[Rfam]
RNA sequence: AUUUAACCCGCCAAACCUAUUGCGAGGUAGGGACGGAAAGCCACGGGUCUCAAACUAGCCAAUUGAGAUAGCCGGGUUGCAGAAU
Numbered sequence: 001a002u003u004u005a006a007c008c009c010g011c012c013a014a015a016c017c018u019a020u021u022g023c024g025a026g027g028u029a030g031g032g033a034c035g036g037a038a039a040g041c042c043a044c045g046g047g048u049c050u051c052a053a054a055c056u057a058g059c060c061a062a063u064u065g066a067g068a069u070a071g072c073c074g075g076g077u078u079g080c081a082g083a084a085u
Stems, first nucleotide, its partner, number of pairs: 001085001003082002011036002016031006034071001039078004044074003047069007

Shown here is an 85-nucleotide sequence from Vibrio ishigakensis, a member of the family "c-di-GMP-I-GGC riboswitch aptamer". A search with the family's covariance model found it, with a score of 60 bits. Rfam links the family to the GO term cyclic-di-GMP binding.